RNA sequence: CCGCCCGUCGCUACUACCGAUUGAAUGUCUCUUCGAGAAAGCGGGAUUGAUUUUUACGCAAGUAAGAGUCGAGAGCUCUUUCUAGAAGAUGCUUUGAGAGGAAGUAAAAGUCGUAACAAGGUUUCUGUAGGUGAACCUGCAGAAGGAUCAUUA
Numbered sequence: 001c002c003g004c005c006c007g008u009c010g011c012u013a014c015u016a017c018c019g020a021u022u023g024a025a026u027g028u029c030u031c032u033u034c035g036a037g038a039a040a041g042c043g044g045g046a047u048u049g050a051u052u053u054u055u056a057c058g059c060a061a062g063u064a065a066g067a068g069u070c071g072a073g074a075g076c077u078c079u080u081u082c083u084a085g086a087a088g089a090u091g092c093u094u095u096g097a098g099a100g101g102a103a104g105u106a107a108a109a110g111u112c113g114u115a116a117c118a119a120g121g122u123u124u125c126u127g128u129a130g131g132u133g134a135a136c137c138u139g140c141a142g143a144a145g146g147a148u149c150a151u152u153a
Stems, first nucleotide, its partner, number of pairs: 001120001003117001006113002009110001012106004017101002021097001024095002027092002030089005037082005043076001047072011122145010
The record is a 153-nucleotide part of an RNA from Ceratonova shasta, which matches "Eukaryotic small subunit ribosomal RNA" in Rfam. Lineage of the source: Eukaryota > Metazoa > Myxosporea > Bivalvulida > Ceratonova. The sequence is in the family's curated seed alignment.